[Rfam]
RNA: Bacterial RNase P class A
RNA sequence: CGAGUCGACCGGGCGGUCGCGUCGAGCGGGUCUCCGGACCCGGUCGCCGAGGAACGUCCGGACUCCACAGGGCAGGGUGGUUGCUAACGGCAACCCGGGGUGACCCGCGGGACAGUGCCACAGAAAACAGACCGCCGCGCCCGACUGGGCACGGUAAGGGUGAAACGGUGGGGUAAGAGCCCACCAGCAUCCCGGGUGACCGGGAUGGCUCGGUAAACCCCACCCGGAGCAAGGCCAAGAAGGGGCCGGUCGUCGCAGGACGACCGCCCCGCGCAGGCGUUCGAGGGCGGCCCGCCCGAUGCCUGCGGGUAGGCCGCUGGAGCCUGCCGGCGACGGCAGGCCGAGAUGGAUGGCCGCCACCGGCCCCACCGGCAACGGUGCGGACCGGUCACAGAAUCCGGCGUACAGGUCGACUCGUCCG
Numbered sequence: 001c002g003a004g005u006c007g008a009c010c011g012g013g014c015g016g017u018c019g020c021g022u023c024g025a026g027c028g029g030g031u032c033u034c035c036g037g038a039c040c041c042g043g044u045c046g047c048c049g050a051g052g053a054a055c056g057u058c059c060g061g062a063c064u065c066c067a068c069a070g071g072g073c074a075g076g077g078u079g080g081u082u083g084c085u086a087a088c089g090g091c092a093a094c095c096c097g098g099g100g101u102g103a104c105c106c107g108c109g110g111g112a113c114a115g116u117g118c119c120a121c122a123g124a125a126a127a128c129a130g131a132c133c134g135c136c137g138c139g140c141c142c143g144a145c146u147g148g149g150c151a152c153g154g155u156a157a158g159g160g161u162g163a164a165a166c167g168g169u170g171g172g173g174u175a176a177g178a179g180c181c182c183a184c185c186a187g188c189a190u191c192c193c194g195g196g197u198g199a200c201c202g203g204g205a206u207g208g209c210u211c212g213g214u215a216a217a218c219c220c221c222a223c224c225c226g227g228a229g230c231a232a233g234g235c236c237a238a239g240a241a242g243g244g245g246c247c248g249g250u251c252g253u254c255g256c257a258g259g260a261c262g263a264c265c266g267c268c269c270c271g272c273g274c275a276g277g278c279g280u281u282c283g284a285g286g287g288c289g290g291c292c293c294g295c296c297c298g299a300u301g302c303c304u305g306c307g308g309g310u311a312g313g314c315c316g317c318u319g320g321a322g323c324c325u326g327c328c329g330g331c332g333a334c335g336g337c338a339g340g341c342c343g344a345g346a347u348g349g350a351u352g353g354c355c356g357c358c359a360c361c362g363g364c365c366c367c368a369c370c371g372g373c374a375a376c377g378g379u380g381c382g383g384a385c386c387g388g389u390c391a392c393a394g395a396a397u398c399c400g401g402c403g404u405a406c407a408g409g410u411c412g413a414c415u416c417g418u419c420c421g
Stems, first nucleotide, its partner, number of pairs: 001417010011406001012358007020049002023046003027042005054404003058401005063229004070293004075225005080094005095109001096107004110220002115218002117214003132159002134155004139150004167185006187209001188207008233315004285297004322341008